Rfam assigns this 488-nucleotide RNA from Kluyveromyces lactis to the family "Small nucleolar RNA snR37". Rfam links the family to the GO terms nucleolus and RNA processing. The organism belongs to Kluyveromyces, within Eukaryota. The match comes from Rfam's covariance-model search (195 bits). For this family Rfam cites "Genome-wide searching for pseudouridylation guide snoRNAs: analysis of the Saccharomyces cerevisiae genome" (Schattner et al., Nucleic Acids Res, 2004).
RNA sequence: AUCAUCAGUAGUGGUUAGUACUAUCUCAAGAUAAUAUUAAUACACAUAUACACCAUAGAAACCUACGGUUUCGGUUAUCUCUUUUCUCAAGAAGUUUUUCCUAGGUUUCUUCGGAGAUCUAGGAACGGCUUUAGUUAAUACUGGAGAAGAGUGACUGUUACCAUUUUUUAACCCAUAGCUGAAUGGAUCCUGACUAGCCCCAAACAAGCUGGCCACAGUUUCCAUUUCGUUUCCGGUUUCUUAGAUCAAUAAAGUUGGAAGCGCAUUGAGUUGGGAGGGGAAGUCUCUUCCUUUUCCCGGUUUUUUGCAUCACUUCUUUCUUUUAACCAUUAUGAAGAGGUCUGGAAAGUGAUGAUUAGAAGCGGUUUAACAGCUCGCUCUAGUUGUUCUUCCAGGUGUUGCAUGUGAUCCAGAGGGCUUUGCGUAAUGGCUGCCUGAGAGUUUGGAUUUUCACUCUCCGUUGUGCCCUUCUUCAUGAUGGAACAGUU
Numbered sequence: 001a002u003c004a005u006c007a008g009u010a011g012u013g014g015u016u017a018g019u020a021c022u023a024u025c026u027c028a029a030g031a032u033a034a035u036a037u038u039a040a041u042a043c044a045c046a047u048a049u050a051c052a053c054c055a056u057a058g059a060a061a062c063c064u065a066c067g068g069u070u071u072c073g074g075u076u077a078u079c080u081c082u083u084u085u086c087u088c089a090a091g092a093a094g095u096u097u098u099u100c101c102u103a104g105g106u107u108u109c110u111u112c113g114g115a116g117a118u119c120u121a122g123g124a125a126c127g128g129c130u131u132u133a134g135u136u137a138a139u140a141c142u143g144g145a146g147a148a149g150a151g152u153g154a155c156u157g158u159u160a161c162c163a164u165u166u167u168u169u170a171a172c173c174c175a176u177a178g179c180u181g182a183a184u185g186g187a188u189c190c191u192g193a194c195u196a197g198c199c200c201c202a203a204a205c206a207a208g209c210u211g212g213c214c215a216c217a218g219u220u221u222c223c224a225u226u227u228c229g230u231u232u233c234c235g236g237u238u239u240c241u242u243a244g245a246u247c248a249a250u251a252a253a254g255u256u257g258g259a260a261g262c263g264c265a266u267u268g269a270g271u272u273g274g275g276a277g278g279g280g281a282a283g284u285c286u287c288u289u290c291c292u293u294u295u296c297c298c299g300g301u302u303u304u305u306u307g308c309a310u311c312a313c314u315u316c317u318u319u320c321u322u323u324u325a326a327c328c329a330u331u332a333u334g335a336a337g338a339g340g341u342c343u344g345g346a347a348a349g350u351g352a353u354g355a356u357u358a359g360a361a362g363c364g365g366u367u368u369a370a371c372a373g374c375u376c377g378c379u380c381u382a383g384u385u386g387u388u389c390u391u392c393c394a395g396g397u398g399u400u401g402c403a404u405g406u407g408a409u410c411c412a413g414a415g416g417g418c419u420u421u422g423c424g425u426a427a428u429g430g431c432u433g434c435c436u437g438a439g440a441g442u443u444u445g446g447a448u449u450u451u452c453a454c455u456c457u458c459c460g461u462u463g464u465g466c467c468c469u470u471c472u473u474c475a476u477g478a479u480g481g482a483a484c485a486g487u488u
Base pairs, nucleotide, nucleotide: 008051009050010049012046013045014041015040016039017038018037019036020035022033023032024031025030057241058240059239060238061237062236063235068162070160072157073156074155075154076153077152078151081149082148083147084146085145086144087143091132092131093130094129095128096127099124100123101122102121104119105118106117107116108115109114133142134141135140181227182226183225184224185223186222187221190218191217192216194212195211196210197209198208253479255477256475257474258471259470260469261468262398263397264396266394268392269391270390401466402465403464404463405462409447410446411445412444413443414442415436416435417434418433422431423430